[Rfam]
RNA: int-alpA RNA
Organism: Burkholderia pseudomallei
RNA sequence: GCCGCGCCACGAUUGCGCAAUCGAAAACCGGGUUCCCUUGCCCGGCCUGGCGCGGCUCUUCCCACAAGG
Number, nucleotide and partner (000 for none) at each position: 001g056002c055003c054004g053005c052006g051007c050008c049009a000010c000011g022012a021013u020014u019015g000016c000017g000018c000019a014020a013021u012022c011023g000024a000025a000026a000027a000028c045029c044030g043031g042032g041033u000034u000035c000036c069037c068038u067039u066040g065041c032042c031043c030044g029045g028046c000047c000048u000049g008050g007051c006052g005053c004054g003055g002056c001057u000058c000059u000060u000061c000062c000063c000064a000065c040066a039067a038068g037069g036